[Rfam]
RNA: Glycine riboswitch aptamer
Organism: Bordetella ansorpii
RNA sequence: ACGCUGGUCGCGGGAGAGAGCCGUUCAUUCGGCCGCCGAAGGCGCAAUUCGCCCGGAAUCGCUCAGGUAACCCAUACCGCAACCGCAUC
Numbered sequence: 001a002c003g004c005u006g007g008u009c010g011c012g013g014g015a016g017a018g019a020g021c022c023g024u025u026c027a028u029u030c031g032g033c034c035g036c037c038g039a040a041g042g043c044g045c046a047a048u049u050c051g052c053c054c055g056g057a058a059u060c061g062c063u064c065a066g067g068u069a070a071c072c073c074a075u076a077c078c079g080c081a082a083c084c085g086c087a088u089c
Stems, first nucleotide, its partner, number of pairs: 006084003010080004020033004035068003038064002042062003049055001